[Rfam]
RNA sequence: UCAUGAACUUUAUACCGCGCGCAUCCCUUAGAUGAGCUCUAAAAAAAUUCACAUAACAU
Dot-bracket structure: ..................((.((((.....)))).))......................
RNA: Plastid-ndhJ 3UTR RNA
Organism: Ricinus communis